[Rfam]
RNA sequence: UAGACCAAUGUAGGUAAGGGAAGUCGGCAAAACGGAUCCGUAACCUUGGGAAAAGGAUUGGCUCUGAGGGCUGAGCCGGUCGGGCUGGGGUCCAGAAGCAGGAACGGCACUGCACCGGGACUGGGCGAGGCUCGCCGCCGUAAAAAGCGGUGCGGCCGAGCCCGGACCAGCGUCGGGACCUUCCUGUGGAAAGCCACAGCUGUGCAUUUUCCGUGGGCUUCGCGCCUGAGGUUCUUGCUUCGGCCGGCAGAAAACAGCCAACUCAGAACUGGCACGGACCGGGGGAAUCCGACUGUCUAAUUAAAACAAAGCAUUGCGAGGGCCGUUGAUCGGUGCUGACGCAAUGUGAUUUCUGCCCAGUGCUCUGAAUGUCAAAGUGAAGAAAUUCAAAAAAGCGCGGGUAAACGGCGGGAGUAACUAUGACUCUCUUGUGGUAGCCAAAUGCCUCGUCAUCUAAUUAGUGACGCGCAUGAAUGGAUUAACGAGAUUCCCACUGUCCCUAUCUACUAUCUAGCGAAACCACAGCCAAGGGAACGGGCUUGGCAAA
Numbered sequence: 001u002a003g004a005c006c007a008a009u010g011u012a013g014g015u016a017a018g019g020g021a022a023g024u025c026g027g028c029a030a031a032a033c034g035g036a037u038c039c040g041u042a043a044c045c046u047u048g049g050g051a052a053a054a055g056g057a058u059u060g061g062c063u064c065u066g067a068g069g070g071c072u073g074a075g076c077c078g079g080u081c082g083g084g085c086u087g088g089g090g091u092c093c094a095g096a097a098g099c100a101g102g103a104a105c106g107g108c109a110c111u112g113c114a115c116c117g118g119g120a121c122u123g124g125g126c127g128a129g130g131c132u133c134g135c136c137g138c139c140g141u142a143a144a145a146a147g148c149g150g151u152g153c154g155g156c157c158g159a160g161c162c163c164g165g166a167c168c169a170g171c172g173u174c175g176g177g178a179c180c181u182u183c184c185u186g187u188g189g190a191a192a193g194c195c196a197c198a199g200c201u202g203u204g205c206a207u208u209u210u211c212c213g214u215g216g217g218c219u220u221c222g223c224g225c226c227u228g229a230g231g232u233u234c235u236u237g238c239u240u241c242g243g244c245c246g247g248c249a250g251a252a253a254a255c256a257g258c259c260a261a262c263u264c265a266g267a268a269c270u271g272g273c274a275c276g277g278a279c280c281g282g283g284g285g286a287a288u289c290c291g292a293c294u295g296u297c298u299a300a301u302u303a304a305a306a307c308a309a310a311g312c313a314u315u316g317c318g319a320g321g322g323c324c325g326u327u328g329a330u331c332g333g334u335g336c337u338g339a340c341g342c343a344a345u346g347u348g349a350u351u352u353c354u355g356c357c358c359a360g361u362g363c364u365c366u367g368a369a370u371g372u373c374a375a376a377g378u379g380a381a382g383a384a385a386u387u388c389a390a391a392a393a394a395g396c397g398c399g400g401g402u403a404a405a406c407g408g409c410g411g412g413a414g415u416a417a418c419u420a421u422g423a424c425u426c427u428c429u430u431g432u433g434g435u436a437g438c439c440a441a442a443u444g445c446c447u448c449g450u451c452a453u454c455u456a457a458u459u460a461g462u463g464a465c466g467c468g469c470a471u472g473a474a475u476g477g478a479u480u481a482a483c484g485a486g487a488u489u490c491c492c493a494c495u496g497u498c499c500c501u502a503u504c505u506a507c508u509a510u511c512u513a514g515c516g517a518a519a520c521c522a523c524a525g526c527c528a529a530g531g532g533a534a535c536g537g538g539c540u541u542g543g544c545a546a547a
Stems, first nucleotide, its partner, number of pairs: 001513004010507007018499003035059005044049001060270002063267006069259005075248009084200003090195001092193001098187004104182001106180002110176003116170001118168002121165006129157003271275001283492007290484002294308003311347008320336001322334004351478003355409003360406002362402004367398001370397003378389004410428006429433001449465005526543005